[Rfam]
RNA sequence: UUCCACAGCUACUGGUCUGCAGCUGUUCUUACAGUAGCACUUGUGGCAUUCCUCUGUGGGAAAGAAACUGUUAACGGUUAAAUACCUCUUUCUUAGUAAAAUAGAAAGUAGUCAUGUGUGUUUCAGACAAAA
Numbered sequence: 001u002u003c004c005a006c007a008g009c010u011a012c013u014g015g016u017c018u019g020c021a022g023c024u025g026u027u028c029u030u031a032c033a034g035u036a037g038c039a040c041u042u043g044u045g046g047c048a049u050u051c052c053u054c055u056g057u058g059g060g061a062a063a064g065a066a067a068c069u070g071u072u073a074a075c076g077g078u079u080a081a082a083u084a085c086c087u088c089u090u091u092c093u094u095a096g097u098a099a100a101a102u103a104g105a106a107a108g109u110a111g112u113c114a115u116g117u118g119u120g121u122u123u124c125a126g127a128c129a130a131a132a
Stems, first nucleotide, its partner, number of pairs: 003059004017046006024039002073121001074119003086111002088108006

Small nucleolar RNA SNORA41: a 132-nucleotide RNA sequence from Tupaia belangeri. The sequence is in the family's curated seed alignment. From the family's description: ACA41 is a member of the H/ACA class of snoRNA that guide the sites of modification of uridines to pseudouridines. Rfam 15.1 lists 676 matches to the family in 522 species. Pairs were carried over by alignment from the consensus structure, which was predicted with PFOLD.